[Rfam]
Rfam assigns this 76-nucleotide RNA from Pipistrellus kuhlii to the family "mir-9229 microRNA precursor family".
RNA sequence: GAGACACCCUUAUGGGACAAUACUUGUUUCAGUGGGGCAUUGCUUCUCACUGAGUCUGUCCCCUGAGUGUGUCACU
Numbered sequence: 001g002a003g004a005c006a007c008c009c010u011u012a013u014g015g016g017a018c019a020a021u022a023c024u025u026g027u028u029u030c031a032g033u034g035g036g037g038c039a040u041u042g043c044u045u046c047u048c049a050c051u052g053a054g055u056c057u058g059u060c061c062c063c064u065g066a067g068u069g070u071g072u073c074a075c076u
Base pairs, nucleotide, nucleotide: 001075003073004072005071006070007069009067010066011065012064014062015061016060017059018058019057022055023054029053030052031051032050033049034048035047036046037044
Rfam 15.1 lists 27,225 matches to the family in 9 species. The base pairs follow the family's consensus structure, which was predicted with RNAalifold. The source organism's lineage runs through Eukaryota, Opisthokonta, Bilateria, Gnathostomata and Pipistrellus. Rfam links the family to the GO terms RISC complex and miRNA-mediated post-transcriptional gene silencing.